This 156-nucleotide RNA from Hordeum vulgare belongs to the Rfam family "small nucleolar RNA snoR134". On this family, see Chen and Wu, Nucleic Acids Res 2009: "Mining small RNA sequencing data: a new approach to identify small nucleolar RNAs in Arabidopsis".
[Rfam]
RNA sequence: UUGCACGAUGCUAACCCCGGGCUUGUCGGACGGAUCUCGGUCCGCUGUGAUGAAGGGAAGCCCCAAUGCUGUGCUAGAUCCACACCGCCGUUCAGUGUUGCAGGCCGCGACGCUACGCGUGGAUGAGCAGCCUGUGUCAGAGUAACGGAUACAUUC
Numbered sequence: 001u002u003g004c005a006c007g008a009u010g011c012u013a014a015c016c017c018c019g020g021g022c023u024u025g026u027c028g029g030a031c032g033g034a035u036c037u038c039g040g041u042c043c044g045c046u047g048u049g050a051u052g053a054a055g056g057g058a059a060g061c062c063c064c065a066a067u068g069c070u071g072u073g074c075u076a077g078a079u080c081c082a083c084a085c086c087g088c089c090g091u092u093c094a095g096u097g098u099u100g101c102a103g104g105c106c107g108c109g110a111c112g113c114u115a116c117g118c119g120u121g122g123a124u125g126a127g128c129a130g131c132c133u134g135u136g137u138c139a140g141a142g143u144a145a146c147g148g149a150u151a152c153a154u155u156c
Stems, first nucleotide, its partner, number of pairs: 003074005010069002019063005024056001026053003088148005096139002099136006106125002
Pairs were carried over by alignment from the consensus structure, which was predicted with RNAalifold. It scores 81 bits against the family's covariance model.